Shown here is a 241-nucleotide RNA sequence from Amborella trichopoda, a member of the family "MIR8562 microRNA precursor family".
The base pairs follow the family's consensus structure, which was predicted with RNAalifold.
Its family is annotated with RISC complex and miRNA-mediated post-transcriptional gene silencing in the Gene Ontology.
RNA sequence: UUUUCUACAAAUCGGAAUGAUCUGAAAUUUGGAGCGUAUGUUCAUAAAAAAUAGGGAAUCUACGAAAAAUAUCAAAAAAAUAUUUUACAUGAAAUAAAUUGACCAAAAUAAUCCGAAAAAGUUUCAAGGAUAUUUUGGUCAAUUUAUUUUUUGUUAAUUAUUUUUUAUAUAUUUUUAUUAGGUGCGUCUCACUAAAAUGUACACACACUCCAAAUUUCAGAUCAUUCCGAUUUGUAGAAAA
Numbered sequence: 001u002u003u004u005c006u007a008c009a010a011a012u013c014g015g016a017a018u019g020a021u022c023u024g025a026a027a028u029u030u031g032g033a034g035c036g037u038a039u040g041u042u043c044a045u046a047a048a049a050a051a052u053a054g055g056g057a058a059u060c061u062a063c064g065a066a067a068a069a070u071a072u073c074a075a076a077a078a079a080a081u082a083u084u085u086u087a088c089a090u091g092a093a094a095u096a097a098a099u100u101g102a103c104c105a106a107a108a109u110a111a112u113c114c115g116a117a118a119a120a121g122u123u124u125c126a127a128g129g130a131u132a133u134u135u136u137g138g139u140c141a142a143u144u145u146a147u148u149u150u151u152u153g154u155u156a157a158u159u160a161u162u163u164u165u166u167a168u169a170u171a172u173u174u175u176u177a178u179u180a181g182g183u184g185c186g187u188c189u190c191a192c193u194a195a196a197a198u199g200u201a202c203a204c205a206c207a208c209u210c211c212a213a214a215u216u217u218c219a220g221a222u223c224a225u226u227c228c229g230a231u232u233u234g235u236a237g238a239a240a241a
Base pairs, nucleotide, nucleotide: 001241002240003239004238005237006236007235008234009233010232011231012230013229014228015227016226017225018224019223020222021221022220023219024218025217026216027215028214029213030212031211032210033209034208036206037205039203040202041201043199044198045197060181061180062179065176066175067174068173069172070171071170072169075166076165077164078163079162095146096145097144098143099142100141101140102139103138104137105136106135107134108133109132110131112129113128115124116123117122